[Rfam]
RNA: Histidine operon leader
Organism: Aliiglaciecola lipolytica
RNA sequence: UACUGGGCACCAUCAUAUAGCAUAACCUUUCAGGUUCGUGCUGGAAGGUUAUUUGUCCUUCCAGUGGUAAAGAAUUUUUCUAAACCCCCGGAAGGAAACUUCUGGGGGUUUUUC
Numbered sequence: 001u002a003c004u005g006g007g008c009a010c011c012a013u014c015a016u017a018u019a020g021c022a023u024a025a026c027c028u029u030u031c032a033g034g035u036u037c038g039u040g041c042u043g044g045a046a047g048g049u050u051a052u053u054u055g056u057c058c059u060u061c062c063a064g065u066g067g068u069a070a071a072g073a074a075u076u077u078u079u080c081u082a083a084a085c086c087c088c089c090g091g092a093a094g095g096a097a098a099c100u101u102c103u104g105g106g107g108g109u110u111u112u113u114c
Stems, first nucleotide, its partner, number of pairs: 008040003012035003020031001041064008082111013